The record is a 135-nucleotide RNA sequence, which matches "RT-3 RNA" in Rfam. The family's consensus secondary structure is taken from published work. Rfam classes the family as a small RNA.

RNA sequence: AAUCGGUUCUACGGCACAGCCGACGUGUCGGCAAUCGCAGUGACCGAGGGAGAUGCGCCACGCUCAUAGAGUGAAAAAUCAAUGUGGUGGGUAGAGUUUGGUAGGUCCUUCAUGGAUUCGAAGAAGUCAGACCCC
Numbered sequence: 001a002a003u004c005g006g007u008u009c010u011a012c013g014g015c016a017c018a019g020c021c022g023a024c025g026u027g028u029c030g031g032c033a034a035u036c037g038c039a040g041u042g043a044c045c046g047a048g049g050g051a052g053a054u055g056c057g058c059c060a061c062g063c064u065c066a067u068a069g070a071g072u073g074a075a076a077a078a079u080c081a082a083u084g085u086g087g088u089g090g091g092u093a094g095a096g097u098u099u100g101g102u103a104g105g106u107c108c109u110u111c112a113u114g115g116a117u118u119c120g121a122a123g124a125a126g127u128c129a130g131a132c133c134c135c
Base pairs, nucleotide, nucleotide: 003047004046005045006044007043012040014038015037016035019032020031021030022029023028049059050058061073062072063071064070089134090133091132092131094128095127097125098124099123104118105117106116107115108114